[Rfam]
RNA: ASpks TB sRNA
RNA sequence: CUUCACCGAGCCGAGCCACAGUGGACGCUCACGGUCCUGCCCGUACGUGGCCAGCAGCGCCCGCGCCUC
Numbered sequence: 001c002u003u004c005a006c007c008g009a010g011c012c013g014a015g016c017c018a019c020a021g022u023g024g025a026c027g028c029u030c031a032c033g034g035u036c037c038u039g040c041c042c043g044u045a046c047g048u049g050g051c052c053a054g055c056a057g058c059g060c061c062c063g064c065g066c067c068u069c
Stems, first nucleotide, its partner, number of pairs: 016024002028065001030063001032059002037054003041050003